[Rfam]
RNA sequence: UGGACAAUGAUGACAACAAAAAGUCAUGAAGAAAGAUGAUGACAUAACAAUCAUGCUCAGUAGGAUUACGCUGAGGCCU
Numbered sequence: 001u002g003g004a005c006a007a008u009g010a011u012g013a014c015a016a017c018a019a020a021a022a023g024u025c026a027u028g029a030a031g032a033a034a035g036a037u038g039a040u041g042a043c044a045u046a047a048c049a050a051u052c053a054u055g056c057u058c059a060g061u062a063g064g065a066u067u068a069c070g071c072u073g074a075g076g077c078c079u
Stems, first nucleotide, its partner, number of pairs: 002078002005073002008070002
The family of this 79-nucleotide RNA sequence from Rattus norvegicus is "Small nucleolar RNA SNORD115". It is annotated as a C/D-box small nucleolar RNA. The match comes from Rfam's covariance-model search (76 bits). The source organism's lineage runs through Eukaryota, Chordata, Vertebrata, Eutheria and Rattus. On this family, see Cavaille et al., Proc Natl Acad Sci U S A 2000: "Identification of brain-specific and imprinted small nucleolar RNA genes exhibiting an unusual genomic organization".